Record summary
A member of the RNA family "nadA riboswitch", 63 nucleotides long. A reference for the family is Huang et al. (2020), "Structure and ligand binding of the ADP-binding domain of the NAD(+) riboswitch", RNA. By type it is a small RNA.
RNA sequence: GCUUUCAACAUCCCCGUCCGCCACUCCGCGCACGUACCAUGCAGAGCCGGCUGGACUGAAGGC
Numbered sequence: 001g002c003u004u005u006c007a008a009c010a011u012c013c014c015c016g017u018c019c020g021c022c023a024c025u026c027c028g029c030g031c032a033c034g035u036a037c038c039a040u041g042c043a044g045a046g047c048c049g050g051c052u053g054g055a056c057u058g059a060a061g062g063c
Base pairs, nucleotide, nucleotide: 001063002062003061004060005059006058007057013049016056017055018054019053020052022050025045026044028042029041